[Rfam]
RNA sequence: UGUUUAGGACGACCUAAGCAGGCUCUCAAUGCGGGACGACCCGC
Numbered sequence: 001u002g003u004u005u006a007g008g009a010c011g012a013c014c015u016a017a018g019c020a021g022g023c024u025c026u027c028a029a030u031g032c033g034g035g036a037c038g039a040c041c042c043g044c
Stems, first nucleotide, its partner, number of pairs: 001020008031044005
Annotation: The record is a 44-nucleotide RNA sequence from Saccharophagus degradans, which matches "Guanidine-II riboswitch aptamer (mini-ykkC)" in Rfam. It is one of the family's seed sequences. The family has 72 seed sequences and 1,589 matches in Rfam 15.1. From the family's description: Simpler in structure and has fewer highly conserved nucleotide positions than the ykkC-yxkD leader. Despite this each of its two stem-loop structures directly bind free guanidine. Its family is annotated with regulation of gene expression in the Gene Ontology. The organism belongs to Saccharophagus degradans, within Bacteria.